A member of the RNA family "Bacterial large subunit ribosomal RNA" from bacterium NHP-B, 275 nucleotides of a longer RNA. The match comes from Rfam's covariance-model search (2742 bits).
[Rfam]
RNA sequence: GUAAAGGCAUGUGAAAAACAUGCCCGCCGAAAGUCCAAGGGUUCCUGCGCAAGGGUAAUCCACGCAGGGUUAGCCGGCCCCUAAGGCGAGGACGAAAGUCGUAGUCGAUGGGAAUCAGGUCAAUAUUCCUGAGCCUCUUGGUGGUGACGAAGGUCGUAAGUUGUUCCUGCUUAUUUGGAUUGUAGGGGCAGCGAAGAACUUCCAGGAAAUAGCCCCAAGAAUAAGACCGUACCCCAAACCGACACUGGUGGACUGGUAGAGCAUACUAAGGCGCU
Numbered sequence: 001g002u003a004a005a006g007g008c009a010u011g012u013g014a015a016a017a018a019c020a021u022g023c024c025c026g027c028c029g030a031a032a033g034u035c036c037a038a039g040g041g042u043u044c045c046u047g048c049g050c051a052a053g054g055g056u057a058a059u060c061c062a063c064g065c066a067g068g069g070u071u072a073g074c075c076g077g078c079c080c081c082u083a084a085g086g087c088g089a090g091g092a093c094g095a096a097a098g099u100c101g102u103a104g105u106c107g108a109u110g111g112g113a114a115u116c117a118g119g120u121c122a123a124u125a126u127u128c129c130u131g132a133g134c135c136u137c138u139u140g141g142u143g144g145u146g147a148c149g150a151a152g153g154u155c156g157u158a159a160g161u162u163g164u165u166c167c168u169g170c171u172u173a174u175u176u177g178g179a180u181u182g183u184a185g186g187g188g189c190a191g192c193g194a195a196g197a198a199c200u201u202c203c204a205g206g207a208a209a210u211a212g213c214c215c216c217a218a219g220a221a222u223a224a225g226a227c228c229g230u231a232c233c234c235c236a237a238a239c240c241g242a243c244a245c246u247g248g249u250g251g252a253c254u255g256g257u258a259g260a261g262c263a264u265a266c267u268a269a270g271g272c273g274c275u
Stems, first nucleotide, its partner, number of pairs: 006024006025273004033253004039233002044068006053061002075229003080111002085106003089102001091100003115132005135225001136220002140216002143213001145211001149202004160192011239248002255267004